This 77-nucleotide RNA from Salix brachista belongs to the Rfam family "Small nucleolar RNA SNORD18". It scores 51 bits against the family's covariance model. Taxonomically the source falls in Salix (Eukaryota, Mesangiospermae, eudicotyledons, Salicaceae). Rfam 15.1 lists 2,622 matches to the family in 960 species.

RNA sequence: GAGAUAUGAUGAGAUAAACUUUGGUCCGUGUUUCUGAUUUAACCGUGACCGAUAACUUUUUACCAAUUUCUGAUCUC
Numbered sequence: 001g002a003g004a005u006a007u008g009a010u011g012a013g014a015u016a017a018a019c020u021u022u023g024g025u026c027c028g029u030g031u032u033u034c035u036g037a038u039u040u041a042a043c044c045g046u047g048a049c050c051g052a053u054a055a056c057u058u059u060u061u062a063c064c065a066a067u068u069u070c071u072g073a074u075c076u077c
Stems, first nucleotide, its partner, number of pairs: 001077004